[Rfam]
RNA: Small nucleolar RNA snoR97
RNA sequence: UUUGAGUAUGGGAUUUAGGGUCUGAAAAACUCAUAUAUUGUUGUGUUGUCAUCAGCUUCUUCUCUUGAAAAUUUCAACGAGAUUGGAGUUAAAUAACAGCACUACAUGC
Dot-bracket structure: ..........................................((((((.....((((((.((((..............))))..))))))......)))))).......